Shown here is a 366-nucleotide RNA sequence from Amphiplicatus metriothermophilus, a member of the family "Alphaproteobacteria transfer-messenger RNA". Rfam's curators write: Bacterial tmRNA, also known as 10Sa RNA or SsrA, is named for its dual tRNA and mRNA-like properties. Its role is to liberate the mRNA from a stalled ribosome. To accomplish this part of the tmRNA is used as a reading frame that ends in a translation stop signal. The broken mRNA is replaced in the ribosome by the tmRNA and translation of the tmRNA leads to addition of a proteolysis tag to the incomplete protein enabling recognition by a protease. Recently a number of permuted tmRNA genes have been found encoded in two parts. tmRNAs have been identified in eubacteria and some chloroplasts but are absent from archaeal and eukaryote nuclear genomes. Lineage of the source: Bacteria > Pseudomonadati > Pseudomonadota > Alphaproteobacteria > Amphiplicatus. The family is grouped with related families in Rfam's "tRNA clan". The match comes from Rfam's covariance-model search (264 bits). The family's consensus secondary structure is taken from published work.

[Rfam]
RNA sequence: GCCCUUCAAAAACCGCCGUUCAGGCGUUACAUAGGGAGCGCCGGUUUCGGCCGGCUAUGGCGAUAAAGGACUCGUGCAAUAAGCGCAUCGGACCCGGGGGCGGUACCCGGCGGCUCCACCAAAGCCUCUCCCCGUCUGCGGCCGGGGGAUUUCGGCGGGGCCGAAAUAGGAUCGACGAGCGUGUAAAGACGAGAUCUUCGCCCGGAUGGCCUCCGUUAUUGGGCCGCUCCAAAUAGUUGCCAACGACAACUAUCGGGAAGAGCUCGCUCUCGCUGCGUAAUGCGGCUGAGCUGCUCGCUUUGAAGUCCUAGCCCCCUUCCAGGGCCAGGCGGGGUUCGGGAGCACCUGGCAACAGAAGCUCCCACU
Number, nucleotide and partner (000 for none) at each position: 001g000002c000003c000004c000005u000006u000007c000008a000009a000010a000011a000012a000013c000014c000015g000016c000017c000018g000019u000020u000021c000022a000023g000024g000025c000026g000027u000028u000029a000030c000031a000032u000033a000034g000035g000036g000037a000038g000039c000040g055041c054042c053043g052044g051045u000046u000047u000048c000049g000050g000051c044052c043053g042054g041055c040056u000057a000058u000059g202060g201061c200062g199063a198064u000065a000066a000067a000068g000069g195070a000071c193072u192073c191074g190075u189076g000077c000078a000079a000080u000081a000082a000083g000084c181085g180086c179087a000088u178089c177090g176091g000092a000093c000094c110095c109096g108097g107098g106099g000100g000101c000102g000103g000104u000105a000106c098107c097108c096109g095110g094111c163112g162113g161114c160115u159116c158117c157118a000119c000120c000121a000122a000123a000124g000125c000126c000127u000128c000129u000130c000131c000132c000133c000134g000135u000136c000137u000138g000139c000140g000141g000142c000143c000144g000145g000146g000147g000148g000149a000150u000151u000152u000153c000154g000155g000156c000157g117158g116159g115160g114161c113162c112163g111164a000165a000166a000167u000168a000169g000170g000171a000172u000173c000174g000175a000176c090177g089178a088179g086180c085181g084182u000183g000184u000185a000186a000187a000188g000189a075190c074191g073192a072193g071194a000195u069196c000197u000198u063199c062200g061201c060202c059203c215204g214205g213206a212207u000208g000209g225210c222211c221212u206213c205214c204215g203216u000217u000218a000219u000220u000221g211222g210223g000224c000225c209226g000227c000228u000229c000230c000231a000232a000233a000234u000235a000236g000237u000238u000239g000240c000241c000242a000243a000244c000245g000246a000247c000248a000249a000250c000251u000252a000253u000254c000255g000256g000257g000258a000259a000260g000261a000262g000263c000264u000265c000266g000267c000268u000269c000270u000271c000272g000273c000274u000275g000276c000277g000278u000279a000280a000281u000282g000283c000284g000285g000286c000287u000288g000289a000290g000291c000292u000293g000294c000295u000296c000297g000298c000299u000300u000301u000302g000303a000304a000305g000306u000307c000308c000309u000310a000311g000312c000313c000314c000315c000316c000317u000318u000319c000320c000321a000322g000323g000324g000325c000326c000327a000328g000329g000330c000331g000332g347333g346334g345335u344336u000337c000338g363339g362340g361341a360342g359343c358344a335345c334346c333347u332348g000349g000350c000351a000352a000353c000354a000355g000356a000357a000358g343359c342360u341361c340362c339363c338364a000365c000366u000